The family of this 138-nucleotide sequence from Gopherus agassizii is "Small nucleolar RNA SNORA75".
[Rfam]
RNA sequence: CCCUUCUCAAUGAGCUCCUUCCUGCCGUAAAAUCAAUGGCAGCCUGUGGAUUCGCAUGAGAAGAAAAUUAAGUGCUCAGUGCUGGCAUAUUCACCAUCUUGCUUCAGAUGGAUGAUUAGCCAAGGCUGUGCGACACUG
Numbered sequence: 001c002c003c004u005u006c007u008c009a010a011u012g013a014g015c016u017c018c019u020u021c022c023u024g025c026c027g028u029a030a031a032a033u034c035a036a037u038g039g040c041a042g043c044c045u046g047u048g049g050a051u052u053c054g055c056a057u058g059a060g061a062a063g064a065a066a067a068u069u070a071a072g073u074g075c076u077c078a079g080u081g082c083u084g085g086c087a088u089a090u091u092c093a094c095c096a097u098c099u100u101g102c103u104u105c106a107g108a109u110g111g112a113u114g115a116u117u118a119g120c121c122a123a124g125g126c127u128g129u130g131c132g133a134c135a136c137u138g
Stems, first nucleotide, its partner, number of pairs: 003063006014055002016050003022042007074131002077128003094111006
A reference for the family is Ganot et al. (1997), "The family of box ACA small nucleolar RNAs is defined by an evolutionarily conserved secondary structure and ubiquitous sequence elements essential for RNA accumulation", Genes Dev. Rfam links the family to the GO terms nucleolus and RNA processing. Lineage of the source: Eukaryota > Sauropsida > Sauria > Testudines > Gopherus. About the family: U23 belongs to the H/ACA class of snoRNAs. snoRNAs bind a number of proteins (including dyskerin, Gar1p and Nop10p in the case of the H/ACA class) to form snoRNP complexes. This class are thought to guide the sites of modification of uridines to pseudouridines by forming direct base pairing interactions with substrate RNAs. Targets include ribosomal and spliceosomal RNAs as well as the Trypanosoma spliced leader RNA (SL RNA) as possibly other, still unknown cellular RNAs. U23 can direct the pseudouridylation of U97 in human 18S rRNA (Bachellerie JP, Ganot, P unpublished data). It scores 86 bits against the family's covariance model. It is annotated as an H/ACA-box small nucleolar RNA.